[Rfam]
RNA: T-box leader
Organism: Liquorilactobacillus cacaonum
RNA sequence: AUUAUUUUGUUGAGAAGGAAUAUUAGUUUAUUUUCUAGUUUAAGAGAGUGUAUGGUUGGUGUUAAUGCACACUAGGAAAUUUAUGAACUCACCUUUGAAUUUUUUGUUGAAUUGUUUAAUAGUAGGCAAGAACGGGACUUCCGUUAUAAGGUUAAGUGCCAACAUAUGUUUGUUGGAAGAUAGGUGGUACCGCGAUUGCAUUCGUCCUAUGU
Numbered sequence: 001a002u003u004a005u006u007u008u009g010u011u012g013a014g015a016a017g018g019a020a021u022a023u024u025a026g027u028u029u030a031u032u033u034u035c036u037a038g039u040u041u042a043a044g045a046g047a048g049u050g051u052a053u054g055g056u057u058g059g060u061g062u063u064a065a066u067g068c069a070c071a072c073u074a075g076g077a078a079a080u081u082u083a084u085g086a087a088c089u090c091a092c093c094u095u096u097g098a099a100u101u102u103u104u105u106g107u108u109g110a111a112u113u114g115u116u117u118a119a120u121a122g123u124a125g126g127c128a129a130g131a132a133c134g135g136g137a138c139u140u141c142c143g144u145u146a147u148a149a150g151g152u153u154a155a156g157u158g159c160c161a162a163c164a165u166a167u168g169u170u171u172g173u174u175g176g177a178a179g180a181u182a183g184g185u186g187g188u189a190c191c192g193c194g195a196u197u198g199c200a201u202u203c204g205u206c207c208u209a210u211g212u
Stems, first nucleotide, its partner, number of pairs: 008099001015095004026084002030080002037073003048070006102131007133143003159176006181209004192205004
Dot-bracket structure: .......(......((((.......((..((.....(((........((((((...........))))))))).....))..)).......))))...)..(((((((................))))))).(((.....)))...............((((((......))))))....((((.......((((......))))))))...